[Rfam]
RNA: Xanthomonas sRNA sX9
Organism: Xanthomonas oryzae
RNA sequence: AUGUACCGCGCGUCCACUGCGGUUGUGAGCGCGCCCUCCGCGCCCACCUGACAGCUGCUCGCGACGUUUUGUUAGAA
Numbered sequence: 001a002u003g004u005a006c007c008g009c010g011c012g013u014c015c016a017c018u019g020c021g022g023u024u025g026u027g028a029g030c031g032c033g034c035c036c037u038c039c040g041c042g043c044c045c046a047c048c049u050g051a052c053a054g055c056u057g058c059u060c061g062c063g064a065c066g067u068u069u070u071g072u073u074a075g076a077a
Stems, first nucleotide, its partner, number of pairs: 002016002005013002021035003048075007
Dot-bracket structure: .((.((.....)).))....(((.........)))............(((((((..............)))))))..